[Rfam]
RNA: Cyano-1 RNA
Organism: Prochlorococcus marinus
RNA sequence: UGAGAUGUGAGGAGAAAGCUUCUCUAAAAGUGGAAACUAGGAAACACUUUUUAGGAAGCUAAAAA
Numbered sequence: 001u002g003a004g005a006u007g008u009g010a011g012g013a014g015a016a017a018g019c020u021u022c023u024c025u026a027a028a029a030g031u032g033g034a035a036a037c038u039a040g041g042a043a044a045c046a047c048u049u050u051u052u053a054g055g056a057a058g059c060u061a062a063a064a065a
Stems, first nucleotide, its partner, number of pairs: 017060005025053005030047003
Dot-bracket structure: ................(((((...((((((((............))).)))))..))))).....